Shown here is an 81-nucleotide RNA sequence from Neogobius melanostomus, a member of the family "mir-194 microRNA precursor family". Rfam links the family to the GO terms miRNA-mediated post-transcriptional gene silencing and RISC complex. The base pairs follow the family's consensus structure, which was predicted with RNAalifold. A reference for the family is Lagos-Quintana et al. (2003), "New microRNAs from mouse and human", RNA. The source organism's lineage runs through Eukaryota, Bilateria, Ctenosquamata, Gobiidae and Neogobius. The family has 46 seed sequences and 936 matches in Rfam 15.1.
RNA sequence: GGGUCUUCACCAGCUGUAACAGCAUCUCCAUAUGGAAAAUAAUUGGCUUCCAGUGGAGCUGCUGUUAUCUAUGGUGGGACA
Numbered sequence: 001g002g003g004u005c006u007u008c009a010c011c012a013g014c015u016g017u018a019a020c021a022g023c024a025u026c027u028c029c030a031u032a033u034g035g036a037a038a039a040u041a042a043u044u045g046g047c048u049u050c051c052a053g054u055g056g057a058g059c060u061g062c063u064g065u066u067a068u069c070u071a072u073g074g075u076g077g078g079a080c081a
Stems, first nucleotide, its partner, number of pairs: 010074003016068008026058006033052003